[Rfam]
RNA sequence: UAUUAAAACAAUAUAUUACCUCAUAUAAUCGUGAGAAUAAGGCUCACAAGUUUCUACCGGGUGGCCAAUAACUGCCUGACUAUGAGGGAAGUGUACCUAGGG
Numbered sequence: 001u002a003u004u005a006a007a008a009c010a011a012u013a014u015a016u017u018a019c020c021u022c023a024u025a026u027a028a029u030c031g032u033g034a035g036a037a038u039a040a041g042g043c044u045c046a047c048a049a050g051u052u053u054c055u056a057c058c059g060g061g062u063g064g065c066c067a068a069u070a071a072c073u074g075c076c077u078g079a080c081u082a083u084g085a086g087g088g089a090a091g092u093g094u095a096c097c098u099a100g101g102g
Stems, first nucleotide, its partner, number of pairs: 019087007029049001031047005058078007
The record is a 102-nucleotide sequence from Halanaerobacter jeridensis, which matches "Purine riboswitch aptamer" in Rfam. It scores 84 bits against the family's covariance model.